This 62-nucleotide RNA from Pongo pygmaeus belongs to the Rfam family "mir-33 microRNA precursor family". Rfam 15.1 lists 1,467 matches to the family in 815 species. The source organism's lineage runs through Eukaryota, Eumetazoa, Chordata, Gnathostomata and Pongo. Pairs were carried over by alignment from the consensus structure, which was predicted with PFOLD. Gene Ontology terms of the family: gene silencing by miRNA and RISC complex. The sequence is in the family's curated seed alignment. The literature on the family includes a 2010 paper in Mol Hum Reprod by Ahn et al., "MicroRNA transcriptome in the newborn mouse ovaries determined by massive parallel sequencing".

RNA sequence: CCCGCGUGCAUGCUGUUGCAUGCACGUGUUGAGCGGUGCAGUGCCUCGGCAGUGCAGCCCGG
Dot-bracket structure: ((.(.((((((((((..(.((((((..........)))).)).)..)))).))))).)).))